[Rfam]
RNA sequence: AGUUUUAAACGACCUAUACCAAAGACAGUGGGUGCUGAAAUCAGCUUAAUAUCCUGCCGAGGUUGAUGUCCUAAAAAAAAUUCCCUUGCUUCAAAAAUAACUGUAGCAAUUAGGGAAAGACAUCAGACGCGACCCCGGCAUCUAGCUAGGGGUCUUGUUAUAUGUCGAA
Dot-bracket structure: ...........................(((((.(((......))).......))))).........................................................................(((((((((.....))).))))))...............
Numbered sequence: 001a002g003u004u005u006u007a008a009a010c011g012a013c014c015u016a017u018a019c020c021a022a023a024g025a026c027a028g029u030g031g032g033u034g035c036u037g038a039a040a041u042c043a044g045c046u047u048a049a050u051a052u053c054c055u056g057c058c059g060a061g062g063u064u065g066a067u068g069u070c071c072u073a074a075a076a077a078a079a080a081u082u083c084c085c086u087u088g089c090u091u092c093a094a095a096a097a098u099a100a101c102u103g104u105a106g107c108a109a110u111u112a113g114g115g116a117a118a119g120a121c122a123u124c125a126g127a128c129g130c131g132a133c134c135c136c137g138g139c140a141u142c143u144a145g146c147u148a149g150g151g152g153u154c155u156u157g158u159u160a161u162a163u164g165u166c167g168a169a
Stems, first nucleotide, its partner, number of pairs: 028057005034045003131154006137147003
The family of this 169-nucleotide sequence from Stanieria cyanosphaera is "Ribosomal protein L10 leader". The literature on the family includes a 2008 paper in Biochemistry by Iben and Draper, "Specific interactions of the L10(L12)4 ribosomal protein complex with mRNA, rRNA, and L11". NCBI's taxonomy places the organism under Bacteria, Cyanophyceae, Pleurocapsales, Dermocarpellaceae, Stanieria cyanosphaera.